[Rfam]
Transposase-2 RNA: a 69-nucleotide RNA sequence from an Acidimicrobiia bacterium. The family's RNA type in Rfam is small RNA.
RNA sequence: GAAGCGUCAACCCCGCACCAACCAACAUUGGAUCAGACGGGGACCGUCACCCUGAAAAGGAUGACAGCA
Numbered sequence: 001g002a003a004g005c006g007u008c009a010a011c012c013c014c015g016c017a018c019c020a021a022c023c024a025a026c027a028u029u030g031g032a033u034c035a036g037a038c039g040g041g042g043a044c045c046g047u048c049a050c051c052c053u054g055a056a057a058a059g060g061a062u063g064a065c066a067g068c069a
Stems, first nucleotide, its partner, number of pairs: 011042005018031004046065004051060003
Dot-bracket structure: ..........(((((..((((......))))......)))))...((((.(((....))).))))....

A search with the family's covariance model found it, with a score of 57 bits.